A member of the RNA family "Bacterial RNase P class A" from Panacagrimonas perspica, 372 nucleotides long. The source organism's lineage runs through Bacteria, Pseudomonadota, Nevskiales, Nevskiaceae and Panacagrimonas. Pairs were carried over by alignment from the consensus structure, which is taken from published work. Rfam's curators write: Ribonuclease P (RNase P) is a ubiquitous endoribonuclease, found in archaea, bacteria and eukarya as well as chloroplasts and mitochondria. The match comes from Rfam's covariance-model search (314 bits).
RNA sequence: GGAGUUGGCCGAACGAUCGCUGCUGUCGCAAGACAGGGGAGGAAAGUCCGGGCUCCGCAGGGCAGGACACCAGGUAACGCCUGGGAGCCGCGAGGCUACGGAAAGUGCCACAGAGAACGAACCGCCGAUGGCCUGGAUAAAACCAGGAUCAGGUAAGGGUGAAAAGGUGCGGUAAGAGCGCACCGCGUCGCUGGUAACAGGGACGGCACGGAAAACCCCGUCCGGAGCAAGACCAAAUAGGGAAGGACGUGCCGAAAGGCACAACGCGUGGCCCACGCGCCUUCCGGGUAGGUUGCUGGAGCGCCGCGGUGACGCGGCGCCUAGAGGAAUGAUCGUUCUCGACAGAACCCGGCUUACAGGCCGACUCCUUUU
Numbered sequence: 001g002g003a004g005u006u007g008g009c010c011g012a013a014c015g016a017u018c019g020c021u022g023c024u025g026u027c028g029c030a031a032g033a034c035a036g037g038g039g040a041g042g043a044a045a046g047u048c049c050g051g052g053c054u055c056c057g058c059a060g061g062g063c064a065g066g067a068c069a070c071c072a073g074g075u076a077a078c079g080c081c082u083g084g085g086a087g088c089c090g091c092g093a094g095g096c097u098a099c100g101g102a103a104a105g106u107g108c109c110a111c112a113g114a115g116a117a118c119g120a121a122c123c124g125c126c127g128a129u130g131g132c133c134u135g136g137a138u139a140a141a142a143c144c145a146g147g148a149u150c151a152g153g154u155a156a157g158g159g160u161g162a163a164a165a166g167g168u169g170c171g172g173u174a175a176g177a178g179c180g181c182a183c184c185g186c187g188u189c190g191c192u193g194g195u196a197a198c199a200g201g202g203a204c205g206g207c208a209c210g211g212a213a214a215a216c217c218c219c220g221u222c223c224g225g226a227g228c229a230a231g232a233c234c235a236a237a238u239a240g241g242g243a244a245g246g247a248c249g250u251g252c253c254g255a256a257a258g259g260c261a262c263a264a265c266g267c268g269u270g271g272c273c274c275a276c277g278c279g280c281c282u283u284c285c286g287g288g289u290a291g292g293u294u295g296c297u298g299g300a301g302c303g304c305c306g307c308g309g310u311g312a313c314g315c316g317g318c319g320c321c322u323a324g325a326g327g328a329a330u331g332a333u334c335g336u337u338c339u340c341g342a343c344a345g346a347a348c349c350c351g352g353c354u355u356a357c358a359g360g361c362c363g364a365c366u367c368c369u370u371u372u
Stems, first nucleotide, its partner, number of pairs: 001368010011357001012337007020039002023036005044355003048352005053227004060274004065223004070084005085099001086097004100218002105216002108211002122158002124154003129151003133147002166184006185207001186205004191200003231294004241285006265279005301320008